[Rfam]
RNA sequence: CCACCAUCCAGAGUGGCUGAGAGACCUGGCUCGAUGAUGCCGCAGCAACCCGCUUCGUUUGCGCAGUGUGGGUGCUACCGCCAGGACCGAUGGAGG
Numbered sequence: 001c002c003a004c005c006a007u008c009c010a011g012a013g014u015g016g017c018u019g020a021g022a023g024a025c026c027u028g029g030c031u032c033g034a035u036g037a038u039g040c041c042g043c044a045g046c047a048a049c050c051c052g053c054u055u056c057g058u059u060u061g062c063g064c065a066g067u068g069u070g071g072g073u074g075c076u077a078c079c080g081c082c083a084g085g086a087c088c089g090a091u092g093g094a095g096g
Base pairs, nucleotide, nucleotide: 001096002095004093005092006091007090008089013043014042015041016040017039021032022031023030026084027083028082029081044076045075046074047073049072050071051068052067053066054065080088
SAM riboswitch aptamer (S box leader): a 96-nucleotide RNA from Rhodococcus erythropolis. The sequence is in the family's curated seed alignment. The source organism's lineage runs through Bacteria, Bacillati, Mycobacteriales, Nocardiaceae and Rhodococcus erythropolis. Pairs were carried over by alignment from the consensus structure, which is taken from published work. Gene Ontology term of the family: regulation of gene expression.